Annotation:
A member of the RNA family "MIR2912 microRNA precursor family" from Populus tomentosa, 161 nucleotides long. A search with the family's covariance model found it, with a score of 74 bits. Lineage of the source: Eukaryota > eudicotyledons > Pentapetalae > Salicaceae > Populus.
RNA sequence: UCUAGAACUCCAGCUAUAGGUAAAAUUCUGAGCUGUGUUUGGGCUGGAUUGCAGGAUAGAUUCUUACUUCUCUUUUAUGGCCAAACUUUGAUUUUUAAAACAGUAGAUUUGGGUCUUCCACUAUUCAUAAACUUUGUAGGCCUAUUUCUUAGCUUUCUGGC
Number, nucleotide and partner (000 for none) at each position: 001u000002c160003u159004a158005g157006a156007a155008c152009u151010c000011c000012a149013g148014c000015u000016a145017u144018a143019g142020g141021u139022a000023a137024a000025a135026u000027u000028c000029u000030g000031a000032g000033c000034u000035g128036u127037g126038u000039u000040u000041g000042g000043g000044c000045u000046g124047g000048a122049u000050u120051g119052c000053a117054g116055g115056a114057u113058a000059g110060a109061u000062u107063c106064u105065u000066a000067c103068u102069u000070c000071u000072c000073u097074u000075u000076u000077a093078u000079g000080g000081c000082c000083a000084a000085a000086c000087u000088u000089u000090g000091a000092u000093u077094u000095u000096u000097a073098a000099a000100a000101c000102a068103g067104u000105a064106g063107a062108u000109u060110u059111g000112g000113g057114u056115c055116u054117u053118c000119c051120a050121c000122u048123a000124u046125u000126c037127a036128u035129a000130a000131a000132c000133u000134u000135u025136g000137u023138a000139g021140g000141c020142c019143u018144a017145u016146u000147u000148c013149u012150u000151a009152g008153c000154u000155u007156u006157c005158u004159g003160g002161c000